Shown here is a 113-nucleotide RNA sequence from Mesorhizobium sp. 8, a member of the family "Alphaproteobacterial ar15". The match comes from Rfam's covariance-model search (52 bits). On this family, see del Val et al., RNA Biol 2012: "A survey of sRNA families in alpha-proteobacteria".
RNA sequence: AUCUCCUGAGCGCGUUCUCCUCCCAUUAGCGCUCACGAGUGUUCCCCUCUGGAGGUUUAGCCUUAUAGGCAACUCCAUCAACUCAGCCGGAUCUUCUUGGAUCCGGCUUUUUU
Number, nucleotide and partner (000 for none) at each position: 001a040002u000003c039004u038005c037006c000007u035008g034009a033010g032011c031012g030013c029014g000015u000016u000017c000018u000019c000020c000021u000022c000023c000024c000025a000026u000027u000028a000029g013030c012031g011032c010033u009034c008035a007036c000037g005038a004039g003040u001041g000042u000043u000044c000045c000046c000047c000048u000049c000050u077051g076052g075053a074054g073055g000056u071057u000058u000059a000060g000061c000062c000063u000064u000065a000066u000067a000068g000069g000070c000071a056072a000073c054074u053075c052076c051077a050078u000079c000080a000081a000082c000083u000084c000085a108086g107087c106088c105089g104090g103091a102092u101093c100094u099095u000096c000097u000098u000099g094100g093101a092102u091103c090104c089105g088106g087107c086108u085109u000110u000111u000112u000113u000